[Rfam]
RNA: RNA Staph. aureus E (RoxS)
RNA sequence: GUGAAGUUAGUCACAACAAACAUAUACCCCUUUGUUUGACCGUGAAAAAUUUCUCCCAUCCCCUUUGUUCGUAUAAAAUAGAAAAAGACCUUGCAGUUUGGCUGCAAGGUCUUUUC
Numbered sequence: 001g002u003g004a005a006g007u008u009a010g011u012c013a014c015a016a017c018a019a020a021c022a023u024a025u026a027c028c029c030c031u032u033u034g035u036u037u038g039a040c041c042g043u044g045a046a047a048a049a050u051u052u053c054u055c056c057c058a059u060c061c062c063c064u065u066u067g068u069u070c071g072u073a074u075a076a077a078a079u080a081g082a083a084a085a086a087g088a089c090c091u092u093g094c095a096g097u098u099u100g101g102c103u104g105c106a107a108g109g110u111c112u113u114u115u116c
Stems, first nucleotide, its partner, number of pairs: 003053006011045004017038006069081001073079001085113011